[Rfam]
RNA sequence: GGUUCCAUAGUAUAGUGGUUAGUACUGGGGACUUUAAAUCCCUUGACCUGGGUUCGAAUCCCAGUGGGACCU
Numbered sequence: 001g002g003u004u005c006c007a008u009a010g011u012a013u014a015g016u017g018g019u020u021a022g023u024a025c026u027g028g029g030g031a032c033u034u035u036a037a038a039u040c041c042c043u044u045g046a047c048c049u050g051g052g053u054u055c056g057a058a059u060c061c062c063a064g065u066g067g068g069a070c071c072u
Stems, first nucleotide, its partner, number of pairs: 001071007010025004027043005048064005
Dot-bracket structure: (((((((..((((........)))).(((((.......)))))....(((((.......)))))))))))).
Rfam assigns this 72-nucleotide sequence from Tetrahymena thermophila to the family "tRNA". Lineage of the source: Eukaryota > Oligohymenophorea > Hymenostomatida > Tetrahymenina > Tetrahymena.